[Rfam]
RNA sequence: AGGGGAUGAAAUGCUUUACAAAAACCGUUUCAAUUGCUGUGUAUUCCAUUGGAACUGCAGGCAUUCAUCCCAGAGUAAACUACUUCCAGACUGGAACUCUGUGCGAUUGCAUUGAAGCUUAUGCAGUCGCAUCGUUCUUCCAGCCACAUUC
Numbered sequence: 001a002g003g004g005g006a007u008g009a010a011a012u013g014c015u016u017u018a019c020a021a022a023a024a025c026c027g028u029u030u031c032a033a034u035u036g037c038u039g040u041g042u043a044u045u046c047c048a049u050u051g052g053a054a055c056u057g058c059a060g061g062c063a064u065u066c067a068u069c070c071c072a073g074a075g076u077a078a079a080c081u082a083c084u085u086c087c088a089g090a091c092u093g094g095a096a097c098u099c100u101g102u103g104c105g106a107u108u109g110c111a112u113u114g115a116a117g118c119u120u121a122u123g124c125a126g127u128c129g130c131a132u133c134g135u136u137c138u139u140c141c142a143g144c145c146a147c148a149u150u151c
Stems, first nucleotide, its partner, number of pairs: 004070006011064004016059001025057001027055006038048002041046001077150002091143006099134001101132008110123003
RNA: Drosophila small cajal body-specific RNA PsiU6-40